[Rfam]
RNA sequence: CUCCCGUAGGGAAGCGAAGACCCCGUGGAGCUUAACUGCAGGCUGCCGUUGGAGUUUGGUGGACGAUGUAAAGUGUAGGCGGGAGCCGUCGAAGCCAAGCCGCCAGGCUUGGUGAAGGCGUCCAUGUAACACCGCCCACCGUCGACCGAGUUCCUAACUACUUCGGUAGAACAGUGGCAGUUGGGCAGUUUCGCUGGGGCGGCAGCCCCUCGAAAAAUUAUCGAGGGGGUCCAAGGGUCGGCUUAGGCGGGUCAGAAGUCCGCCGUAAAGGACAAGGCCAGAAGCCGGCCUAACUGUGUCCUUGUCACAGGAGGACGCAGGGACAAAAGUCAGGCCUAGCGAACCCCGACGUUCCUCUUACUGAGGACUCGGGAUGACAGAAAAGCUACCCCGGGGAUAACAGAGUUGUCUCCCCCAAGAGCCCGUAUCGACGGGGAGGCUUGCUACCUCGAUGUCGGUUCUUCGCAUCCUGGCCGUGCAGCAGCGGCCAAGGGUAGGGUUGUUCGCCCGUUAAAGCGGAUCGUGAGCUGGGUUUAGACCGUCGUGAGACAGGUCGGACGCUAUCUUGCGGGAGUGUC
Numbered sequence: 001c002u003c004c005c006g007u008a009g010g011g012a013a014g015c016g017a018a019g020a021c022c023c024c025g026u027g028g029a030g031c032u033u034a035a036c037u038g039c040a041g042g043c044u045g046c047c048g049u050u051g052g053a054g055u056u057u058g059g060u061g062g063a064c065g066a067u068g069u070a071a072a073g074u075g076u077a078g079g080c081g082g083g084a085g086c087c088g089u090c091g092a093a094g095c096c097a098a099g100c101c102g103c104c105a106g107g108c109u110u111g112g113u114g115a116a117g118g119c120g121u122c123c124a125u126g127u128a129a130c131a132c133c134g135c136c137c138a139c140c141g142u143c144g145a146c147c148g149a150g151u152u153c154c155u156a157a158c159u160a161c162u163u164c165g166g167u168a169g170a171a172c173a174g175u176g177g178c179a180g181u182u183g184g185g186c187a188g189u190u191u192c193g194c195u196g197g198g199g200c201g202g203c204a205g206c207c208c209c210u211c212g213a214a215a216a217a218u219u220a221u222c223g224a225g226g227g228g229g230u231c232c233a234a235g236g237g238u239c240g241g242c243u244u245a246g247g248c249g250g251g252u253c254a255g256a257a258g259u260c261c262g263c264c265g266u267a268a269a270g271g272a273c274a275a276g277g278c279c280a281g282a283a284g285c286c287g288g289c290c291u292a293a294c295u296g297u298g299u300c301c302u303u304g305u306c307a308c309a310g311g312a313g314g315a316c317g318c319a320g321g322g323a324c325a326a327a328a329g330u331c332a333g334g335c336c337u338a339g340c341g342a343a344c345c346c347c348g349a350c351g352u353u354c355c356u357c358u359u360a361c362u363g364a365g366g367a368c369u370c371g372g373g374a375u376g377a378c379a380g381a382a383a384a385g386c387u388a389c390c391c392c393g394g395g396g397a398u399a400a401c402a403g404a405g406u407u408g409u410c411u412c413c414c415c416c417a418a419g420a421g422c423c424c425g426u427a428u429c430g431a432c433g434g435g436g437a438g439g440c441u442u443g444c445u446a447c448c449u450c451g452a453u454g455u456c457g458g459u460u461c462u463u464c465g466c467a468u469c470c471u472g473g474c475c476g477u478g479c480a481g482c483a484g485c486g487g488c489c490a491a492g493g494g495u496a497g498g499g500u501u502g503u504u505c506g507c508c509c510g511u512u513a514a515a516g517c518g519g520a521u522c523g524u525g526a527g528c529u530g531g532g533u534u535u536a537g538a539c540c541g542u543c544g545u546g547a548g549a550c551a552g553g554u555c556g557g558a559c560g561c562u563a564u565c566u567u568g569c570g571g572g573a574g575u576g577u578c
Stems, first nucleotide, its partner, number of pairs: 001574008010566003014561002022395004027391002029387005035189004042181007051154010062143004067138002078136005085119003097110005158169004192205001193203003206228006231334002237289006243269002246264006270279002294320009322331001324329001345373005351368001353367004404445003408442001409439007419429002456531001457529004461523001462520005469494002473488005497509004537555004541550003

About this RNA: The family of this 578-nucleotide part of an RNA from candidate division MSBL1 archaeon SCGC-AAA259A05 is "Archaeal large subunit ribosomal RNA". NCBI's taxonomy places the organism under Archaea, Methanobacteriati, Methanobacteriota, candidate division MSBL1. The base pairs follow the family's consensus structure, which is taken from published work. Its Rfam clan is "LSU clan".